[Rfam]
RNA sequence: GCGAGUGUGGCGGAAUUGGUAGACGCGGCGGCUUUAGGUGCCGUUGGGGCAACCCGUGCAGGUUCAAGUCCUGCCACUCGCA
Numbered sequence: 001g002c003g004a005g006u007g008u009g010g011c012g013g014a015a016u017u018g019g020u021a022g023a024c025g026c027g028g029c030g031g032c033u034u035u036a037g038g039u040g041c042c043g044u045u046g047g048g049g050c051a052a053c054c055c056g057u058g059c060a061g062g063u064u065c066a067a068g069u070c071c072u073g074c075c076a077c078u079c080g081c082a
Stems, first nucleotide, its partner, number of pairs: 001081007010026003028044005058074005